A member of the RNA family "mir-2807 microRNA precursor family" from Bombyx mori, 85 nucleotides long. A reference for the family is Liu et al. (2010), "MicroRNAs of Bombyx mori identified by Solexa sequencing", BMC Genomics. Rfam 15.1 lists 5,120 matches to the family in 8 species. A search with the family's covariance model found it, with a score of 80 bits. The source organism's lineage runs through Eukaryota, Panarthropoda, Heteroneura, Bombycinae and Bombyx.
RNA sequence: UUAACUCAAAUUUGUAUGGAGUUGGAACGUUUGCCUAUUUUUGCCGUCAGGGUCGCUGUUCCAACUGUAUACUAAUUUUGAGUUA
Numbered sequence: 001u002u003a004a005c006u007c008a009a010a011u012u013u014g015u016a017u018g019g020a021g022u023u024g025g026a027a028c029g030u031u032u033g034c035c036u037a038u039u040u041u042u043g044c045c046g047u048c049a050g051g052g053u054c055g056c057u058g059u060u061c062c063a064a065c066u067g068u069a070u071a072c073u074a075a076u077u078u079u080g081a082g083u084u085a
Stems, first nucleotide, its partner, number of pairs: 008078005014072003018068001020066010034052003040046001